[Rfam]
RNA: Selenocysteine insertion sequence 1
RNA sequence: UGUUUAUUAAUGACGGCUACAGAUUAAACCUUUAGCCUCUGGAGCCAGAUGCAUUCAAACA
Numbered sequence: 001u002g003u004u005u006a007u008u009a010a011u012g013a014c015g016g017c018u019a020c021a022g023a024u025u026a027a028a029c030c031u032u033u034a035g036c037c038u039c040u041g042g043a044g045c046c047a048g049a050u051g052c053a054u055u056c057a058a059a060c061a
Stems, first nucleotide, its partner, number of pairs: 001061005015046004020041004030035001